[Rfam]
RNA sequence: AUUUAAAUACAUCCUAUGUUACGAUUCAAC
Numbered sequence: 001a002u003u004u005a006a007a008u009a010c011a012u013c014c015u016a017u018g019u020u021a022c023g024a025u026u027c028a029a030c
Stems, first nucleotide, its partner, number of pairs: 009019004
Shown here is a 30-nucleotide RNA sequence from Clostridium argentinense, a member of the family "CRISPR RNA direct repeat element". Gene Ontology term of the family: defense response. The base pairs follow the family's consensus structure, which was predicted with WAR.